[Rfam]
RNA: narK RNA
Organism: Methylococcus capsulatus
RNA sequence: GGCACAGGUAAUGCUUAACUCGUAUUGAAACCUGCGCCAACGGCGGCGCGGCACCAGGACAAAGGCGUCUU
Numbered sequence: 001g002g003c004a005c006a007g008g009u010a011a012u013g014c015u016u017a018a019c020u021c022g023u024a025u026u027g028a029a030a031c032c033u034g035c036g037c038c039a040a041c042g043g044c045g046g047c048g049c050g051g052c053a054c055c056a057g058g059a060c061a062a063a064g065g066c067g068u069c070u071u
Stems, first nucleotide, its partner, number of pairs: 031051002034049005